Rfam assigns this 89-nucleotide RNA from Aliiruegeria lutimaris to the family "L2-Alphaproteobacteria ribosomal protein leader".
For this family Rfam cites "Discovery of 20 novel ribosomal leader candidates in bacteria and archaea" (Eckert and Weinberg, BMC Microbiol, 2020).
By type it is a cis-regulatory leader.
The family's consensus secondary structure is taken from published work.
RNA sequence: GGGGACCUCUCACGAGGGCCCUAUACCCAGGCCGCAAGGCCCAUACAUAGCGGGGCGCAAAGCCCAGCAAAGCUAACGGAAGACAGAAA
Numbered sequence: 001g002g003g004g005a006c007c008u009c010u011c012a013c014g015a016g017g018g019c020c021c022u023a024u025a026c027c028c029a030g031g032c033c034g035c036a037a038g039g040c041c042c043a044u045a046c047a048u049a050g051c052g053g054g055g056c057g058c059a060a061a062g063c064c065c066a067g068c069a070a071a072g073c074u075a076a077c078g079g080a081a082g083a084c085a086g087a088a089a
Stems, first nucleotide, its partner, number of pairs: 001022004006018003034068002038064003